[Rfam]
Annotation: This 52-nucleotide sequence from Blastochloris tepida belongs to the Rfam family "serC leader". The pairing is the family consensus, mapped onto this sequence. Rfam links the family to the GO term regulation of gene expression. NCBI's taxonomy places the organism under Bacteria, Pseudomonadati, Hyphomicrobiales, Blastochloridaceae, Blastochloris. The family's RNA type in Rfam is cis-regulatory leader. From the family's description: This family is a putative regulatory RNA structure that is found upstream of the serC-serA operon in some alpha-proteobacteria. The final stem of the structure overlaps the ribosome binding site of the serC reading frame.
Nucleotides: 052
Stems, first nucleotide, its partner, number of pairs: 011028006032047006
Number, partner (000 for none) and nucleotide at each position: 001000g002000c003000g004000c005000g006000g007000g008000a009000c010000a011028c012027c013026u014025c015024u016023c017000c018000c019000c020000a021000a022000c023016g024015a025014g026013a027012g028011g029000c030000g031000c032047c033046c034045a035044u036043c037042u038000g039000a040000g041000a042037g043036g044035a045034u046033g047032g048000a049000u050000a051000c052000c